[Rfam]
The family of this 260-nucleotide part of an RNA from Companilactobacillus allii is "Bacterial large subunit ribosomal RNA".
The family's consensus secondary structure is taken from published work.
RNA sequence: GGAAAUUUGAGAGGAGCUGUCCUUAGUACGAGAGGACCGGGAUGGACAUACCUCUGGUGUACCAGUUGUGCCGCCAGGCGCAUCGCUGGGUAGCUACGUAUGGAAGGGAUAAACGCUGAAAGCAUCUAAGUGUGAAGCCCCCCUCGAGAUGAGAUUUCCCAUUCCGUAAGGAAGUAAGAUCCGUUAGAGAUUAUGACGUAGAUAGGCUGCGGGUGGAAGUAUAGCGAUAUACGGAGCUGAGCAGUACUAAUAGAUCGAGG
Numbered sequence: 001g002g003a004a005a006u007u008u009g010a011g012a013g014g015a016g017c018u019g020u021c022c023u024u025a026g027u028a029c030g031a032g033a034g035g036a037c038c039g040g041g042a043u044g045g046a047c048a049u050a051c052c053u054c055u056g057g058u059g060u061a062c063c064a065g066u067u068g069u070g071c072c073g074c075c076a077g078g079c080g081c082a083u084c085g086c087u088g089g090g091u092a093g094c095u096a097c098g099u100a101u102g103g104a105a106g107g108g109a110u111a112a113a114c115g116c117u118g119a120a121a122g123c124a125u126c127u128a129a130g131u132g133u134g135a136a137g138c139c140c141c142c143c144u145c146g147a148g149a150u151g152a153g154a155u156u157u158c159c160c161a162u163u164c165c166g167u168a169a170g171g172a173a174g175u176a177a178g179a180u181c182c183g184u185u186a187g188a189g190a191u192u193a194u195g196a197c198g199u200a201g202a203u204a205g206g207c208u209g210c211g212g213g214u215g216g217a218a219g220u221a222u223a224g225c226g227a228u229a230u231a232c233g234g235a236g237c238u239g240a241g242c243a244g245u246a247c248u249a250a251u252a253g254a255u256c257g258a259g260g
Base pairs, nucleotide, nucleotide: 001159002158003157004156005155006154007153008152011145012144013143014142017045018044019043020042021041022040023039047102048101049100050099051098055096056095057094062089063088064087065086066085067082068081069080070079071078072077106140107139108138113133114132115131116130117129162173163172164171175258178256179255180254181253182198183197184196185195186194203249204248205247206245207244208243209242210241212238213237219232220231221230222229223228

Rfam links the family to the GO terms ribosome and structural constituent of ribosome.